[Rfam]
RNA sequence: GUGAAGUGAUGAUUCAGUUUAUCCAUUCGCUGAGAGCGCCGCACCGACCUCCUCUAAGCCCCUGUUCCUGUUCUAGGGACUUGGGCCAUGUGGCCCCCAGUGCUGCGCAGCCUGCAGCGUUCUGCUGUGGGUGCCCAGUGCUGGGCCUGCAGGAGGACGGUCGGAGGUGGCAGGGUGGGGCUCCCGUCCCACCCACCAAGAUGAGUGGUGGAAUCUGAUCAC
Numbered sequence: 001g002u003g004a005a006g007u008g009a010u011g012a013u014u015c016a017g018u019u020u021a022u023c024c025a026u027u028c029g030c031u032g033a034g035a036g037c038g039c040c041g042c043a044c045c046g047a048c049c050u051c052c053u054c055u056a057a058g059c060c061c062c063u064g065u066u067c068c069u070g071u072u073c074u075a076g077g078g079a080c081u082u083g084g085g086c087c088a089u090g091u092g093g094c095c096c097c098c099a100g101u102g103c104u105g106c107g108c109a110g111c112c113u114g115c116a117g118c119g120u121u122c123u124g125c126u127g128u129g130g131g132u133g134c135c136c137a138g139u140g141c142u143g144g145g146c147c148u149g150c151a152g153g154a155g156g157a158c159g160g161u162c163g164g165a166g167g168u169g170g171c172a173g174g175g176u177g178g179g180g181c182u183c184c185c186g187u188c189c190c191a192c193c194c195a196c197c198a199a200g201a202u203g204a205g206u207g208g209u210g211g212a213a214u215c216u217g218a219u220c221a222c
Base pairs, nucleotide, nucleotide: 010221011220012219013218014217017214018213019212020211023208024207025206026205027204028203029202030200031199034196038171039170040169041168042166044164045163046162047161048160049159050157051156052155053154054153055152058086059085060084061083064080065079066078067077068076069075090150091149092148093147095145096144102139103138104137107134108133110132111131112130113129114128115127116126117125118124119123173194174193175192176191177190178189179188180187